[Rfam]
RNA sequence: GGCCUCGAACCCGUAGAUCCGAACUUGUGUGAAGUGACUCCACAAGCUCGUGUCUGCAGGUCUGCGUCUG
Numbered sequence: 001g002g003c004c005u006c007g008a009a010c011c012c013g014u015a016g017a018u019c020c021g022a023a024c025u026u027g028u029g030u031g032a033a034g035u036g037a038c039u040c041c042a043c044a045a046g047c048u049c050g051u052g053u054c055u056g057c058a059g060g061u062c063u064g065c066g067u068c069u070g
Stems, first nucleotide, its partner, number of pairs: 002068001004066001006064002010060002015055004020050003024046006